The family of this 92-nucleotide RNA from Vanilla planifolia is "Small nucleolar RNA Z266". Rfam classes the family as a C/D-box small nucleolar RNA. The literature on the family includes a 2003 paper in Nucleic Acids Res by Chen et al., "The high diversity of snoRNAs in plants: identification and comparative study of 120 snoRNA genes from Oryza sativa". It scores 74 bits against the family's covariance model. Lineage of the source: Eukaryota > Euphyllophyta > Spermatophyta > Petrosaviidae > Vanilla. Rfam 15.1 lists 719 matches to the family in 213 species. Rfam links the family to the GO terms nucleolus and RNA processing.
[Rfam]
RNA sequence: GCUUGGCAAGUAUGAUGAAUCAAUUAGAUGUGUGAGGCAAGUUUCCUGUGAACUUAAAUCAUGAGGCAUACUUUGAUUCUGACUUGCUUUGC
Numbered sequence: 001g002c003u004u005g006g007c008a009a010g011u012a013u014g015a016u017g018a019a020u021c022a023a024u025u026a027g028a029u030g031u032g033u034g035a036g037g038c039a040a041g042u043u044u045c046c047u048g049u050g051a052a053c054u055u056a057a058a059u060c061a062u063g064a065g066g067c068a069u070a071c072u073u074u075g076a077u078u079c080u081g082a083c084u085u086g087c088u089u090u091g092c
Stems, first nucleotide, its partner, number of pairs: 001092002005088006